[Rfam]
RNA sequence: CCGGCUUGAUGCUGCCUGCCGGCGAGAUGUGGUCGGUGGUGACCGAAUCACCAA
Numbered sequence: 001c002c003g004g005c006u007u008g009a010u011g012c013u014g015c016c017u018g019c020c021g022g023c024g025a026g027a028u029g030u031g032g033u034c035g036g037u038g039g040u041g042a043c044c045g046a047a048u049c050a051c052c053a054a
Base pairs, nucleotide, nucleotide: 001022002021003020004019005018024049025048031044032043033042034041
Dot-bracket structure: (((((............))))).((.....((((......))))...)).....

This 54-nucleotide RNA from Mycolicibacterium sp. P9-64 belongs to the Rfam family "eL15-Euryarchaeota ribosomal protein leader".
The source organism's lineage runs through Bacteria, Actinomycetes, Mycobacteriales, Mycobacteriaceae and Mycobacterium (subgen. Mycolicibacterium).